A member of the RNA family "Gammaproteobacterial sRNA STnc400" from Marinomonas sp. MWYL1, 121 nucleotides long.
Rfam's curators put it in the seed alignment.
Pairs were carried over by alignment from the consensus structure, which was predicted with RNAalifold.
By type it is a non-coding RNA gene.

RNA sequence: UUGGGCUGCGUUAGAUCUUCGUCUACCGCUCCUUCGUGCCUCAGGAUCGAUAGACGAAGAUCUAACGCUUCCUCUAGUAAAGAGUCAGAUGAUGGGGUGAAAGCCCCAUUAUUUAUUAUAA
Number, nucleotide and partner (000 for none) at each position: 001u000002u000003g073004g072005g071006c000007u000008g068009c067010g066011u065012u064013a063014g062015a061016u060017c059018u058019u057020c056021g055022u054023c053024u052025a051026c000027c049028g048029c000030u046031c045032c044033u043034u000035c000036g041037u000038g000039c000040c000041u036042c000043a033044g032045g031046a030047u000048c028049g027050a000051u025052a024053g023054a022055c021056g020057a019058a018059g017060a016061u015062c014063u013064a012065a011066c010067g009068c008069u000070u000071c005072c004073u003074c000075u000076a000077g000078u000079a000080a000081a000082g000083a000084g000085u000086c000087a114088g113089a112090u000091g110092a109093u108094g107095g106096g105097g104098u103099g000100a000101a000102a000103g098104c097105c096106c095107c094108a093109u092110u091111a000112u089113u088114u087115a000116u000117u000118a000119u000120a000121a000